[Rfam]
RNA sequence: CACAUGGGAUGUUCGACUAAGAUCGCCACGUCCUGUGGCAACUUCGAACGACCCUGCGUCGUACAGU
Numbered sequence: 001c002a003c004a005u006g007g008g009a010u011g012u013u014c015g016a017c018u019a020a021g022a023u024c025g026c027c028a029c030g031u032c033c034u035g036u037g038g039c040a041a042c043u044u045c046g047a048a049c050g051a052c053c054c055u056g057c058g059u060c061g062u063a064c065a066g067u
Stems, first nucleotide, its partner, number of pairs: 011049006025039005054066003
Rfam assigns this 67-nucleotide RNA from Halobacillus halophilus to the family "Bacillaceae-1 RNA". It is annotated as a small RNA. The source organism's lineage runs through Bacteria, Bacillota, Caryophanales, Bacillaceae and Halobacillus halophilus. The match comes from Rfam's covariance-model search (45 bits).